[Rfam]
RNA: small nucleolar RNA snoR114
Organism: Theobroma cacao
Nucleotides: 088
Stems, first nucleotide, its partner, number of pairs: 001088004
Number, partner (000 for none) and nucleotide at each position: 001088g002087a003086g004085c005000u006000g007000u008000g009000a010000u011000g012000a013000a014000u015000c016000u017000u018000g019000u020000g021000c022000c023000u024000c025000u026000u027000g028000u029000g030000a031000u032000a033000u034000u035000a036000g037000g038000g039000u040000u041000u042000a043000u044000c045000a046000c047000u048000u049000a050000u051000g052000u053000c054000u055000a056000a057000u058000u059000c060000u061000u062000g063000g064000g065000a066000u067000g068000a069000a070000a071000u072000u073000g074000g075000c076000u077000a078000c079000a080000u081000c082000u083000g084000a085004g086003c087002u088001c